This 401-nucleotide RNA sequence belongs to the Rfam family "Bacterial RNase P class A".
[Rfam]
RNA sequence: CGAGCCGGCCGGGCGGCCGCGUGGGGAUCAUCGAUCCCCCCGAGGAACGUCCGGGCUCCACAAGGCAGGGUGGUGGGUAACGCCCACCCGGGGUGACCCGCGGGACAGUGCCACAGAAAGCAGACCGCCAGGGCCGCACGGCCCAGGUAAGGGUGAAACGGUGGUGUAAGAGACCACCAGUGCCCAGGGUGACCUGGGCAGCUAGGUAAACCCCACCCGGAGCAAGGUCAAGAGGGGCCAUCGGCUGAUGGCCCUGCGCGGACGUUCGAGGGCUGCCAGCCCGAGUCCGCGGGUAGACCGCACGAGGCUGUCGGCAACGGCAGCCCUAGAUGGAUGGCCGCCUCCCGGCCGACCGCAAGGUCGCCCGGAGACAGAACCCGGCGUACAGGCCGACUCGUCCG
Number, nucleotide and partner (000 for none) at each position: 001c397002g396003a395004g394005c000006c392007g391008g390009c389010c388011g386012g342013g341014c340015g339016g338017c337018c336019g000020c042021g041022u000023g039024g038025g037026g036027a035028u034029c000030a000031u000032c000033g000034a028035u027036c026037c025038c024039c023040c000041c021042g020043a000044g000045g000046a000047a384048c383049g382050u000051c381052c380053g379054g378055g377056c222057u221058c220059c219060a000061c000062a000063a000064g277065g276066c275067a000068g218069g217070g216071u215072g214073g087074u086075g085076g084077g083078u000079a000080a000081c000082g000083c077084c076085c075086a074087c073088c102089c100090g099091g098092g097093g000094u000095g000096a000097c092098c091099c090100g089101c000102g088103g213104g212105a000106c000107a000108g211109u210110g207111c206112c205113a000114c000115a000116g000117a000118a000119a000120g000121c000122a000123g000124a000125c152126c151127g148128c147129c146130a000131g144132g143133g142134c141135c140136g000137c000138a000139c000140g135141g134142c133143c132144c131145a000146g129147g128148u127149a000150a000151g126152g125153g000154u000155g000156a000157a000158a000159c000160g178161g177162u176163g175164g174165u173166g000167u000168a000169a000170g000171a000172g000173a165174c164175c163176a162177c161178c160179a000180g202181u200182g199183c198184c197185c196186a195187g194188g193189g000190u000191g000192a000193c188194c187195u186196g185197g184198g183199c182200a181201g000202c180203u000204a000205g112206g111207u110208a000209a000210a109211c108212c104213c103214c072215a071216c070217c069218c068219g059220g058221a057222g056223c000224a000225a000226g299227g298228u297229c296230a000231a000232g000233a000234g000235g000236g000237g000238c000239c000240a000241u000242c000243g000244g000245c000246u000247g000248a000249u000250g000251g000252c000253c000254c000255u000256g000257c000258g290259c289260g288261g287262a286263c285264g000265u000266u000267c000268g000269a000270g282271g281272g280273c279274u000275g066276c065277c064278a000279g273280c272281c271282c270283g000284a000285g263286u262287c261288c260289g259290c258291g000292g000293g000294u000295a000296g229297a228298c227299c226300g000301c000302a000303c000304g000305a000306g325307g324308c323309u322310g321311u320312c319313g318314g000315c000316a000317a000318c313319g312320g311321c310322a309323g308324c307325c306326c000327u000328a000329g000330a000331u000332g000333g000334a000335u000336g018337g017338c016339c015340g014341c013342c012343u000344c000345c000346c000347g000348g000349c000350c000351g000352a000353c000354c000355g000356c000357a000358a000359g000360g000361u000362c000363g000364c000365c000366c000367g000368g000369a000370g000371a000372c000373a000374g000375a000376a000377c055378c054379c053380g052381g051382c049383g048384u047385a000386c011387a000388g010389g009390c008391c007392g006393a000394c004395u003396c002397g001398u000399c000400c000401g000
Background: On this family, see Beauregard et al., RNA Biol 2013: "Identification and characterization of small RNAs in Yersinia pestis". A search with the family's covariance model found it, with a score of 290 bits. The family's consensus secondary structure is taken from published work. The family's RNA type in Rfam is ribozyme.